Guanidine-I riboswitch aptamer: a 100-nucleotide RNA from Paenibacillus sp. N3.4.

[Rfam]
RNA sequence: AAAAAUGUUAUCUGGGGUUCCGCGAUUGCUAAAUCGGCAGGUCCAAGAGAUAAACCACAACUGAUAGGUUGUGGCACGGAGGGAUAAAAGCCCGAGAGAU
Numbered sequence: 001a002a003a004a005a006u007g008u009u010a011u012c013u014g015g016g017g018u019u020c021c022g023c024g025a026u027u028g029c030u031a032a033a034u035c036g037g038c039a040g041g042u043c044c045a046a047g048a049g050a051u052a053a054a055c056c057a058c059a060a061c062u063g064a065u066a067g068g069u070u071g072u073g074g075c076a077c078g079g080a081g082g083g084a085u086a087a088a089a090g091c092c093c094g095a096g097a098g099a100u
Stems, first nucleotide, its partner, number of pairs: 008053005015044002020041002022038001023036005055074008077098001081093003
This family represents a conserved RNA structure found upstream of the ykkC and yxkD genes in Bacillus subtilis and related genes in other bacteria. Rfam 15.1 lists 1,509 matches to the family in 1,281 species. The match comes from Rfam's covariance-model search (71 bits).